[Rfam]
RNA sequence: UAUGAUGAAGUAGAGCUCCUUGAAGUCCAAUAGAAGAUCCGAGUGGGAAGAUAGAGCUGCUGGUUUAUGGAUCCCUCAAAGUCCUAUCUAUGUGUUUGUAUAGACUUUGUGGCUUGCAUACACCAGGAGCUUUAUUACCCUCCUCUUGAUCCUGUUUUGGAUUGAAGGGAGCUCUACACCAUUUGUUG
Numbered sequence: 001u002a003u004g005a006u007g008a009a010g011u012a013g014a015g016c017u018c019c020u021u022g023a024a025g026u027c028c029a030a031u032a033g034a035a036g037a038u039c040c041g042a043g044u045g046g047g048a049a050g051a052u053a054g055a056g057c058u059g060c061u062g063g064u065u066u067a068u069g070g071a072u073c074c075c076u077c078a079a080a081g082u083c084c085u086a087u088c089u090a091u092g093u094g095u096u097u098g099u100a101u102a103g104a105c106u107u108u109g110u111g112g113c114u115u116g117c118a119u120a121c122a123c124c125a126g127g128a129g130c131u132u133u134a135u136u137a138c139c140c141u142c143c144u145c146u147u148g149a150u151c152c153u154g155u156u157u158u159g160g161a162u163u164g165a166a167g168g169g170a171g172c173u174c175u176a177c178a179c180c181a182u183u184u185g186u187u188g
Base pairs, nucleotide, nucleotide: 013174014173015172016171017170018169019168020167024163025162026161027160028159029158036151057129058128060126061125062124066120067119068118069117074112